[Rfam]
RNA sequence: GGCCGACAAACGCAAACCCGGUGUGAGCCGGGGACGCAAAGCCACAGGGCCCACGAGGCCGGCUGGGUUACCGAC
Numbered sequence: 001g002g003c004c005g006a007c008a009a010a011c012g013c014a015a016a017c018c019c020g021g022u023g024u025g026a027g028c029c030g031g032g033g034a035c036g037c038a039a040a041g042c043c044a045c046a047g048g049g050c051c052c053a054c055g056a057g058g059c060c061g062g063c064u065g066g067g068u069u070a071c072c073g074a075c
Base pairs, nucleotide, nucleotide: 012037013036017032018031019030020029021028022027040069041068042067043066045065046064047063048060049059050058
Rfam assigns this 75-nucleotide RNA sequence from Actinoplanes utahensis to the family "c-di-GMP-I riboswitch aptamer". Gene Ontology term of the family: cyclic-di-GMP binding. Its Rfam clan is "c-di-GMP_I riboswitch clan". Taxonomically the source falls in Actinoplanes (Bacteria, Actinomycetes, Micromonosporales, Micromonosporaceae).